Description:
The family of this 301-nucleotide RNA sequence from Vombatus ursinus is "7SK RNA". The match comes from Rfam's covariance-model search (187 bits). About the family: 7SK was discovered as an abundant small nuclear RNA in the mid-70s but a possible function has only recently been suggested. Two independent studies have found that 7SK RNA binds the CDK9/cyclin T complex (known as elongation factor P-TEFb). P-TEFb activates transcription by phosphorylating the C-terminal domain of RNA polymerase II. This process is negatively regulated by the 7SK RNP. The secondary structure of 7SK RNA shown here was proposed by Wasserman and Steitz on the basis of chemical modification and enzymatic cleavage experiments. This family contains a number of annotated pseudogenes and 7SK derived repeats. The family's RNA type in Rfam is non-coding RNA gene.
RNA sequence: GGAUGUGAGGGUAAUGUGGCUGCCACAUCUGUCACCUCCUUGAUCGCCAAGGUCGAUUUGGCUAAUCCAGCUGGCUAGGUGGGUUUCCCCUUCCUCUCUCACAAAGCUGUGCUCUCUGUCGAAGAGGAUGACCUUUCCAUACAGAGGUGUCCCGUUUUUCCAUAAGAGGUAUAUGAGUAGCUGUGCUUCCUUGCUAGAACAAAUUCCCAACGUCCAUUUGUAGGAGAAUGUAGGUAGUCAAGCUUCCAAGACUCCAUACACAUUCAAAUGAGGUGCUACAUAUGGCAGUCUGCCUUCUUUU
Numbered sequence: 001g002g003a004u005g006u007g008a009g010g011g012u013a014a015u016g017u018g019g020c021u022g023c024c025a026c027a028u029c030u031g032u033c034a035c036c037u038c039c040u041u042g043a044u045c046g047c048c049a050a051g052g053u054c055g056a057u058u059u060g061g062c063u064a065a066u067c068c069a070g071c072u073g074g075c076u077a078g079g080u081g082g083g084u085u086u087c088c089c090c091u092u093c094c095u096c097u098c099u100c101a102c103a104a105a106g107c108u109g110u111g112c113u114c115u116c117u118g119u120c121g122a123a124g125a126g127g128a129u130g131a132c133c134u135u136u137c138c139a140u141a142c143a144g145a146g147g148u149g150u151c152c153c154g155u156u157u158u159u160c161c162a163u164a165a166g167a168g169g170u171a172u173a174u175g176a177g178u179a180g181c182u183g184u185g186c187u188u189c190c191u192u193g194c195u196a197g198a199a200c201a202a203a204u205u206c207c208c209a210a211c212g213u214c215c216a217u218u219u220g221u222a223g224g225a226g227a228a229u230g231u232a233g234g235u236a237g238u239c240a241a242g243c244u245u246c247c248a249a250g251a252c253u254c255c256a257u258a259c260a261c262a263u264u265c266a267a268a269u270g271a272g273g274u275g276c277u278a279c280a281u282a283u284g285g286c287a288g289u290c291u292g293c294c295u296u297c298u299u300u301u
Stems, first nucleotide, its partner, number of pairs: 001108002005102007014092001018090002025086001027084007035074002037070001042067003046062003111150002113147004119141001126137003180243003186237002189234002192232003199221005266301003270296005275289003279285001